The family of this 80-nucleotide RNA sequence from Ailuropoda melanoleuca is "Small nucleolar RNA U2-19".
The organism belongs to Ailuropoda, within Eukaryota.
It is annotated as a C/D-box small nucleolar RNA.
The family has 29 seed sequences and 1,147 matches in Rfam 15.1.
For this family Rfam cites "Guide RNAs with 5' Caps and Novel Box C/D snoRNA-like Domains for Modification of snRNAs in Metazoa" (Tycowski et al., Curr Biol, 2004).
The family's consensus secondary structure is taken from published work.

RNA sequence: GUGUCUUGAUGAAAAUAGCCAAAUUUGAGCAUCAGAAGACCUUCCAGUCUACCUAAUGCCUAAUCUCUGCAGUUCUGAGA
Numbered sequence: 001g002u003g004u005c006u007u008g009a010u011g012a013a014a015a016u017a018g019c020c021a022a023a024u025u026u027g028a029g030c031a032u033c034a035g036a037a038g039a040c041c042u043u044c045c046a047g048u049c050u051a052c053c054u055a056a057u058g059c060c061u062a063a064u065c066u067c068u069g070c071a072g073u074u075c076u077g078a079g080a
Base pairs, nucleotide, nucleotide: 029059030058031057032056037050038049039048040047